The family of this 256-nucleotide RNA sequence from Streptomyces microflavus is "Streptomyces sRNA 4677". A reference for the family is Hindra et al. (2014), "Complex intra-operonic dynamics mediated by a small RNA in Streptomyces coelicolor", PLoS One. From the family's description: Located in the intergenic region between anti-sigma factor SCO4677 gene and a putative regulatory protein gene SCO4676. scr4677 expression requires the SCO4677 activity and scr4677 sRNA itself seem to affect the levels of the SCO4676-associated transcripts. The organism belongs to Streptomyces, within Bacteria. Pairs were carried over by alignment from the consensus structure.
[Rfam]
RNA sequence: CGACCUGGUGGGCCACGACAUCAAGUACUUAAAGAACCAAGAGAAAGUACCCAACCCCACCCCACCCGGUCCCGGUGGUCAGCUGCGGGACGGGCGUGUCACCCACACGGGUGAGAUUCUCCAACUGGGCUGGAUUUUGCACGGGUUGGCAGGCAUAUGCUCACGCUGACCAGCACACCCCAGACAUGAGACGGCCCCCGCCGGGACGGCAAUCCCGAACGAGGGCCUGACCUCCAAGGAAGGCAACAACUUCCCG
Numbered sequence: 001c002g003a004c005c006u007g008g009u010g011g012g013c014c015a016c017g018a019c020a021u022c023a024a025g026u027a028c029u030u031a032a033a034g035a036a037c038c039a040a041g042a043g044a045a046a047g048u049a050c051c052c053a054a055c056c057c058c059a060c061c062c063c064a065c066c067c068g069g070u071c072c073c074g075g076u077g078g079u080c081a082g083c084u085g086c087g088g089g090a091c092g093g094g095c096g097u098g099u100c101a102c103c104c105a106c107a108c109g110g111g112u113g114a115g116a117u118u119c120u121c122c123a124a125c126u127g128g129g130c131u132g133g134a135u136u137u138u139g140c141a142c143g144g145g146u147u148g149g150c151a152g153g154c155a156u157a158u159g160c161u162c163a164c165g166c167u168g169a170c171c172a173g174c175a176c177a178c179c180c181c182a183g184a185c186a187u188g189a190g191a192c193g194g195c196c197c198c199c200g201c202c203g204g205g206a207c208g209g210c211a212a213u214c215c216c217g218a219a220c221g222a223g224g225g226c227c228u229g230a231c232c233u234c235c236a237a238g239g240a241a242g243g244c245a246a247c248a249a250c251u252u253c254c255c256g
Base pairs, nucleotide, nucleotide: 007235008234010232016094099114100113101112102111103110104109129166130165131163132162133161193227194226195225196224197223199221200220203216204215205214206213238254239253240252241251242250